[Rfam]
RNA sequence: GAUUGCGGUGAUGACUCCGAAAAUUCAAGCUCAACAGACCGGAAUGCAGGUCUUUUCUCUUAGAGAGAAGAUUUGCGUGUCGACAACCCCGCUGAGCUGAGCAAUU
Numbered sequence: 001g002a003u004u005g006c007g008g009u010g011a012u013g014a015c016u017c018c019g020a021a022a023a024u025u026c027a028a029g030c031u032c033a034a035c036a037g038a039c040c041g042g043a044a045u046g047c048a049g050g051u052c053u054u055u056u057c058u059c060u061u062a063g064a065g066a067g068a069a070g071a072u073u074u075g076c077g078u079g080u081c082g083a084c085a086a087c088c089c090c091g092c093u094g095a096g097c098u099g100a101g102c103a104a105u106u
Stems, first nucleotide, its partner, number of pairs: 001106006
Dot-bracket structure: ((((((..............................................................................................))))))

Shown here is a 106-nucleotide sequence from Macleaya cordata, a member of the family "Small nucleolar RNA Z107/R87". The match comes from Rfam's covariance-model search (88 bits). The family's consensus secondary structure was predicted with RNAfold. Gene Ontology terms of the family: RNA processing and nucleolus.